[Rfam]
RNA sequence: AAGGUGGCCUAUGCCACAGCAAUGGAUUGGUUCAUAGCCGUAUGCUACGCUUUU
Numbered sequence: 001a002a003g004g005u006g007g008c009c010u011a012u013g014c015c016a017c018a019g020c021a022a023u024g025g026a027u028u029g030g031u032u033c034a035u036a037g038c039c040g041u042a043u044g045c046u047a048c049g050c051u052u053u054u
Base pairs, nucleotide, nucleotide: 001054002053003052006051007050008049010047011046013045014044016041017040019038020037022035023034024033025032026031
RNA: Editing element of GABA-3 exon 9